Annotation
mir-9195 microRNA precursor family: an 87-nucleotide RNA from Cnephaeus nilssonii. It scores 91 bits against the family's covariance model. Pairs were carried over by alignment from the consensus structure, which was predicted with RNAalifold. NCBI's taxonomy places the organism under Eukaryota, Teleostomi, Mammalia, Eutheria, Cnephaeus. Gene Ontology terms of the family: miRNA-mediated post-transcriptional gene silencing and RISC complex.
[Rfam]
RNA sequence: AGAGGCCCUCCGAGGCUGGGGUGGGACGCUUGCCUCGUCGCCAUGGUGGCCAAGCAAGUAUUCCACCAGGCCGCUCACGCUGCCUGC
Numbered sequence: 001a002g003a004g005g006c007c008c009u010c011c012g013a014g015g016c017u018g019g020g021g022u023g024g025g026a027c028g029c030u031u032g033c034c035u036c037g038u039c040g041c042c043a044u045g046g047u048g049g050c051c052a053a054g055c056a057a058g059u060a061u062u063c064c065a066c067c068a069g070g071c072c073g074c075u076c077a078c079g080c081u082g083c084c085u086g087c
Stems, first nucleotide, its partner, number of pairs: 004084003012074001014072004020067007028059006037050005